The family of this 443-nucleotide RNA from Limnobaculum parvum is "cspA thermoregulator". Lineage of the source: Bacteria > Pseudomonadota > Gammaproteobacteria > Budviciaceae > Limnobaculum. Rfam 15.1 lists 2,094 matches to the family in 1,285 species. Rfam links the family to the GO terms response to temperature stimulus and regulation of translation.

RNA sequence: ACCGGUUUGUAGUACAGACCUAUUUAUGUAUAGUAAUUUAAAGCAGUUCGCCAUUUAGCGUUAUCUUUGAUAUCACUUCUUCAAGAAUUCCUUCUAAUUAGUUCCCAUAAGUAAAACUGACAAGCAGACCAUCAAAUAAUUUAUGGUAAUUUAAUAAGAGUUAGAGGAAUACACAAUGUCUAAUACAAUGACUGGUUUAGUAAAAUGGUUUAACAGCGAUAAAGGUUUUGGUUUUAUCUCUCCUAAAGAUGGUAGCAAAGAUGUAUUCGUACAUUAUUCAGCUAUUCAGGGUACAAACUUCAAAACUUUAGAAGAAGGUCAAGAAGUAUCUUUCUCUAUCGAGAAUGGUGCUAAAGGCCCAUCAGCGGUUAACGUUGUUGCUUGCUAAUCAGCAUUUCUAAUAGUUCAUUAUGUAGAUUAGCCUGAUGGGUUAACGCAUAAUG
Numbered sequence: 001a002c003c004g005g006u007u008u009g010u011a012g013u014a015c016a017g018a019c020c021u022a023u024u025u026a027u028g029u030a031u032a033g034u035a036a037u038u039u040a041a042a043g044c045a046g047u048u049c050g051c052c053a054u055u056u057a058g059c060g061u062u063a064u065c066u067u068u069g070a071u072a073u074c075a076c077u078u079c080u081u082c083a084a085g086a087a088u089u090c091c092u093u094c095u096a097a098u099u100a101g102u103u104c105c106c107a108u109a110a111g112u113a114a115a116a117c118u119g120a121c122a123a124g125c126a127g128a129c130c131a132u133c134a135a136a137u138a139a140u141u142u143a144u145g146g147u148a149a150u151u152u153a154a155u156a157a158g159a160g161u162u163a164g165a166g167g168a169a170u171a172c173a174c175a176a177u178g179u180c181u182a183a184u185a186c187a188a189u190g191a192c193u194g195g196u197u198u199a200g201u202a203a204a205a206u207g208g209u210u211u212a213a214c215a216g217c218g219a220u221a222a223a224g225g226u227u228u229u230g231g232u233u234u235u236a237u238c239u240c241u242c243c244u245a246a247a248g249a250u251g252g253u254a255g256c257a258a259a260g261a262u263g264u265a266u267u268c269g270u271a272c273a274u275u276a277u278u279c280a281g282c283u284a285u286u287c288a289g290g291g292u293a294c295a296a297a298c299u300u301c302a303a304a305a306c307u308u309u310a311g312a313a314g315a316a317g318g319u320c321a322a323g324a325a326g327u328a329u330c331u332u333u334c335u336c337u338a339u340c341g342a343g344a345a346u347g348g349u350g351c352u353a354a355a356g357g358c359c360c361a362u363c364a365g366c367g368g369u370u371a372a373c374g375u376u377g378u379u380g381c382u383u384g385c386u387a388a389u390c391a392g393c394a395u396u397u398c399u400a401a402u403a404g405u406u407c408a409u410u411a412u413g414u415a416g417a418u419u420a421g422c423c424u425g426a427u428g429g430g431u432u433a434a435c436g437c438a439u440a441a442u443g
Stems, first nucleotide, its partner, number of pairs: 004020006028243001032241002042235002046233001048231002051225002054222001060220003067213004072209003078178001080176002085172001092166007101118001103116001128147005180195003184191001248340005260268002271329001273327003278323001281320001282318002285312002288309003346361003350358003363384003366380004388406001390404001391402001394399001412440003418434006